RNA sequence: CUCUGGUCUGCGGGCUUAAGGGAUCAGGGCGGAAAGAG
Numbered sequence: 001c002u003c004u005g006g007u008c009u010g011c012g013g014g015c016u017u018a019a020g021g022g023a024u025c026a027g028g029g030c031g032g033a034a035a036g037a038g
Stems, first nucleotide, its partner, number of pairs: 001029008
The family of this 38-nucleotide RNA sequence from Paenibacillus senegalensis is "L31-Firmicutes ribosomal protein leader". The family is grouped with related families in Rfam's "Ribosomal Protein L31 Leader clan". The family's RNA type in Rfam is cis-regulatory leader. The organism belongs to Paenibacillus senegalensis, within Bacteria. It is one of the family's seed sequences.